[Rfam]
Annotation:
The record is a 72-nucleotide RNA sequence from Flavobacterium psychrophilum, which matches "Flavo-1 RNA" in Rfam. It is annotated as a small RNA.

RNA sequence: CUUUAGCCCUGAUGGAAGUGGAAAUCCUCGCCAUUUUUCUUGGCGAGAUUGUAACGUACAGCAGGUAUAUGA
Numbered sequence: 001c002u003u004u005a006g007c008c009c010u011g012a013u014g015g016a017a018g019u020g021g022a023a024a025u026c027c028u029c030g031c032c033a034u035u036u037u038u039c040u041u042g043g044c045g046a047g048a049u050u051g052u053a054a055c056g057u058a059c060a061g062c063a064g065g066u067a068u069a070u071g072a
Base pairs, nucleotide, nucleotide: 009064010063011062013060014059018055019054023050024049025048026047029045030044031043032042033041